[Rfam]
Small nucleolar RNA SNORA42/SNORA80 family: a 138-nucleotide sequence from Catagonus wagneri. The source organism's lineage runs through Eukaryota, Euteleostomi, Mammalia, Eutheria and Catagonus. From the family's description: The members of this family belong to the H/ACA class of snoRNAs that guide the sites of modification of uridines to pseudouridines. It scores 129 bits against the family's covariance model. A reference for the family is Schattner et al. (2006), "A computational screen for mammalian pseudouridylation guide H/ACA RNAs", RNA.
RNA sequence: GCAUGGUGAUGGAUUUAUGGCGGGUCCUUCUCCGUGGGCCUCUCAUAGUGUACCCAUGCCAGAGUAGACUGCAGCCCCGAACCACUGCUCAGCCUCCUUACCUGUGGGCUGUGAGCACUGAAGGGAGUUGGUACAGUG
Dot-bracket structure: ((((((((......((((((.(((((.........)).))).))))))..)))).))))............((((.(.....((...((((((((..........))))))..))...))....).))))........